[Rfam]
RNA sequence: UGUGGUGGUUGAAGGUUCUGUGCACCCAGUAGACUUCUGGUGGGCAGAUAGUCAAAAAGCAGUGCUACACCAGUGCAGCAUUCGGCAUCCUUGGUUUUCAGUCUGUUGUGCGUGUUAAACCUGGUAUUUUUGCUGAAACAGUC
Number, nucleotide and partner (000 for none) at each position: 001u000002g065003u064004g063005g000006u061007g060008g000009u000010u000011g000012a000013a000014g000015g000016u057017u056018c051019u050020g049021u048022g045023c044024a041025c000026c040027c039028a038029g037030u000031a000032g000033a000034c000035u000036u000037c029038u028039g027040g026041u024042g000043g000044g023045c022046a000047g000048a021049u020050a019051g018052u000053c000054a000055a000056a017057a016058a000059g000060c007061a006062g000063u004064g003065c002066u000067a000068c132069a131070c000071c000072a128073g127074u126075g000076c123077a122078g121079c000080a000081u000082u000083c000084g000085g111086c110087a109088u108089c000090c000091u000092u000093g000094g000095u000096u000097u000098u000099c000100a000101g000102u000103c000104u000105g000106u000107u000108g088109u087110g086111c085112g000113u000114g000115u000116u000117a000118a000119a000120c000121c078122u077123g076124g000125u000126a074127u073128u072129u000130u000131u069132g068133c000134u000135g000136a000137a000138a000139c000140a000141g000142u000143c000
Shown here is a 143-nucleotide RNA sequence from Passerina amoena, a member of the family "Small nucleolar RNA SNORA8". From the family's description: ACA8 is a member of the H/ACA class of snoRNA that guide the sites of modification of uridines to pseudouridines. Pairs were carried over by alignment from the consensus structure, which was predicted with RNAfold. The family's RNA type in Rfam is H/ACA-box small nucleolar RNA. Its Rfam clan is "SNORA8 clan".